[Rfam]
The family of this 310-nucleotide sequence from Halocatena salina is "Archaeal signal recognition particle RNA". Taxonomically the source falls in Halocatena (Archaea, Methanobacteriota, Halobacteria, Natronomonadaceae). The family's RNA type in Rfam is non-coding RNA gene. The match comes from Rfam's covariance-model search (189 bits).
RNA sequence: GAAUGGACUAGGCCGGGCAGUUAGGCCCUGCUCGAAACUCACAAAAUGGUCUUUAGUGAGGGCCGAAUCCGGGUGCGUCCGGCCAACCGGUGCGGGCCCUGCAAACCAACUGAGAAGCCUCGUCCGUCGGGGGCAGCGGUCCACGACCAGACGCCUGCAGGGGCGUUUUGGCGUGGUUGAUCGUGGUCAGUCCGUCAGGCGCGGAAGCGAGCAGCGGAACCACGGACACCUGUCGCUCGACGGGUCGCGGGGUGGAGGAGGGGAGCAGCAUUCCCCGUCCCGGAACGCCGGGCAAUCCCGUCGUCCGCCU
Numbered sequence: 001g002a003a004u005g006g007a008c009u010a011g012g013c014c015g016g017g018c019a020g021u022u023a024g025g026c027c028c029u030g031c032u033c034g035a036a037a038c039u040c041a042c043a044a045a046a047u048g049g050u051c052u053u054u055a056g057u058g059a060g061g062g063c064c065g066a067a068u069c070c071g072g073g074u075g076c077g078u079c080c081g082g083c084c085a086a087c088c089g090g091u092g093c094g095g096g097c098c099c100u101g102c103a104a105a106c107c108a109a110c111u112g113a114g115a116a117g118c119c120u121c122g123u124c125c126g127u128c129g130g131g132g133g134c135a136g137c138g139g140u141c142c143a144c145g146a147c148c149a150g151a152c153g154c155c156u157g158c159a160g161g162g163g164c165g166u167u168u169u170g171g172c173g174u175g176g177u178u179g180a181u182c183g184u185g186g187u188c189a190g191u192c193c194g195u196c197a198g199g200c201g202c203g204g205a206a207g208c209g210a211g212c213a214g215c216g217g218a219a220c221c222a223c224g225g226a227c228a229c230c231u232g233u234c235g236c237u238c239g240a241c242g243g244g245u246c247g248c249g250g251g252g253u254g255g256a257g258g259a260g261g262g263g264a265g266c267a268g269c270a271u272u273c274c275c276c277g278u279c280c281c282g283g284a285a286c287g288c289c290g291g292g293c294a295a296u297c298c299c300g301u302c303g304u305c306c307g308c309c310u
Stems, first nucleotide, its partner, number of pairs: 001310001004307005011064004015033006038060005044054001070300004077293004081288001087283004092278005099268004106261002110257002117253007124243008132234005138227001139178001141176005147170001149168008181225007191218005200209003